[Rfam]
RNA sequence: GGCAGCCUGUGUGCAUGGUGAUGGUCCAUGUUUAGUGUUUCUGUUCGUCUGCGUCUUGCAGACUGACAGCAGCACUCACACAAUGUCAGCAGCCAAAGAGAAACCUGAGAUCAUAGUACUGGUCUAGUGAAGUCUCCGUGACAAUUUACCACUGGCCAGCCUCCAAAUUCUCAGACAGUA
Numbered sequence: 001g002g003c004a005g006c007c008u009g010u011g012u013g014c015a016u017g018g019u020g021a022u023g024g025u026c027c028a029u030g031u032u033u034a035g036u037g038u039u040u041c042u043g044u045u046c047g048u049c050u051g052c053g054u055c056u057u058g059c060a061g062a063c064u065g066a067c068a069g070c071a072g073c074a075c076u077c078a079c080a081c082a083a084u085g086u087c088a089g090c091a092g093c094c095a096a097a098g099a100g101a102a103a104c105c106u107g108a109g110a111u112c113a114u115a116g117u118a119c120u121g122g123u124c125u126a127g128u129g130a131a132g133u134c135u136c137c138g139u140g141a142c143a144a145u146u147u148a149c150c151a152c153u154g155g156c157c158a159g160c161c162u163c164c165a166a167a168u169u170c171u172c173a174g175a176c177a178g179u180a
Stems, first nucleotide, its partner, number of pairs: 013090002016088001029082003033078001035076001036074004041069001043067003047063001050060003106173005119159006126153004131145001132142003

A member of the RNA family "Small nucleolar RNA SNORA23" from Acipenser ruthenus, 180 nucleotides long. Pairs were carried over by alignment from the consensus structure, which was predicted with RNAalifold. On this family, see Huttenhofer et al., EMBO J 2001: "RNomics: an experimental approach that identifies 201 candidates for novel, small, non-messenger RNAs in mouse". It scores 125 bits against the family's covariance model. The organism belongs to Acipenser, within Eukaryota. The members of this family belong to the H/ACA class of snoRNAs which are thought to guide the sites of modification of uridines to pseudouridines. This family includes human snoRNA ACA23 (SNORA23) and mouse snoMBI-1. ACA23 is predicted to guide the pseudouridylation of residue U3737 and U4331 of 28S rRNA.